Rfam assigns this 87-nucleotide RNA from Sciurus vulgaris to the family "NoRC associated RNA, pRNA". The organism belongs to Sciurus, within Eukaryota. Its family is annotated with chromatin remodeling in the Gene Ontology.
[Rfam]
RNA sequence: GACUGGGGUCAGGUUUGGGGACAGGUGGCCGUGACUCUCUUCCGGGAGGUCAGAGUGGUGACUGGAUAGGUCCCGUGGCCUCUGGUC
Numbered sequence: 001g002a003c004u005g006g007g008g009u010c011a012g013g014u015u016u017g018g019g020g021a022c023a024g025g026u027g028g029c030c031g032u033g034a035c036u037c038u039c040u041u042c043c044g045g046g047a048g049g050u051c052a053g054a055g056u057g058g059u060g061a062c063u064g065g066a067u068a069g070g071u072c073c074c075g076u077g078g079c080c081u082c083u084g085g086u087c
Stems, first nucleotide, its partner, number of pairs: 004084001006082001008079002012076001018074004029064001031062002034056004